[Rfam]
Nucleotides: 080
Stems, first nucleotide, its partner, number of pairs: 006049007015040001017068005024037004059073003
Number, partner (000 for none) and nucleotide at each position: 001000u002000a003000g004000a005000g006049g007048u008047u009046a010045u011044a012043c013000g014000a015040c016000u017068g018067a019066c020065g021064g022000a023000a024037g025036u026035g027034g028000a029000a030000u031000a032000a033000a034027c035026c036025a037024c038000a039000u040015g041000a042000a043012g044011u045010a046009u047008a048007a049006c050000a051000a052000g053000u054000a055000a056000u057000a058000a059073g060072c061071c062000g063000a064021c065020c066019g067018u068017c069000u070000g071061g072060g073059c074000a075000a076000a077000a078000g079000u080000c

Background:
A member of the RNA family "ZMP/ZTP riboswitch aptamer (pfl RNA motif)" from Clostridium beijerinckii, 80 nucleotides long. The source organism's lineage runs through Bacteria, Bacillati, Bacillota, Eubacteriales and Clostridium beijerinckii. The family has 185 seed sequences and 3,295 matches in Rfam 15.1. The base pairs follow the family's consensus structure, which is taken from published work.